[Rfam]
RNA sequence: GUUGCUUCAUAAUGGUGAACUAUCUCGAAUAUUAAUGAGAUUUGUUCAAGUUUCCCGAAGCAUAUAUGAAUUGUUUUAUAAAUAAGCCAGUUUUUAACAGCGUGGUGAUUUAUUUUCCAUUGCAUCGCGUUACCUGUCUACUGGUAUAUUU
Numbered sequence: 001g002u003u004g005c006u007u008c009a010u011a012a013u014g015g016u017g018a019a020c021u022a023u024c025u026c027g028a029a030u031a032u033u034a035a036u037g038a039g040a041u042u043u044g045u046u047c048a049a050g051u052u053u054c055c056c057g058a059a060g061c062a063u064a065u066a067u068g069a070a071u072u073g074u075u076u077u078a079u080a081a082a083u084a085a086g087c088c089a090g091u092u093u094u095u096a097a098c099a100g101c102g103u104g105g106u107g108a109u110u111u112a113u114u115u116u117c118c119a120u121u122g123c124a125u126c127g128c129g130u131u132a133c134c135u136g137u138c139u140a141c142u143g144g145u146a147u148a149u150u151u
Stems, first nucleotide, its partner, number of pairs: 003062006016048005022041004086145006099131003103127005
Shown here is a 151-nucleotide sequence from Daucus carota, a member of the family "small nucleolar RNA snoR137". Gene Ontology terms of the family: nucleolus and RNA processing. The source organism's lineage runs through Eukaryota, Apiaceae, Scandiceae, Daucus sect. Daucus and Daucus carota. Rfam classes the family as an H/ACA-box small nucleolar RNA. The base pairs follow the family's consensus structure, which was predicted with RNAalifold.